[Rfam]
RNA sequence: GUAGGCCAUUGUGAUGUGGCUGUGUUUAUCAUAAAACUAUGAUAAAAGGGCAAUAUUUUUAUUGCCCAUUUUUUUUA
Number, nucleotide and partner (000 for none) at each position: 001g000002u000003a000004g000005g000006c000007c000008a000009u000010u000011g000012u000013g000014a000015u000016g000017u000018g000019g000020c000021u000022g000023u000024g000025u046026u045027u044028a043029u042030c041031a040032u039033a000034a000035a000036a000037c000038u000039a032040u031041g030042a029043u028044a027045a026046a025047a000048g067049g066050g065051c064052a063053a062054u061055a060056u000057u000058u000059u000060u055061a054062u053063u052064g051065c050066c049067c048068a000069u000070u000071u000072u000073u000074u000075u000076u000077a000

This 77-nucleotide sequence from Gibbsiella quercinecans belongs to the Rfam family "ABC transporter regulator". By type it is a cis-regulatory element.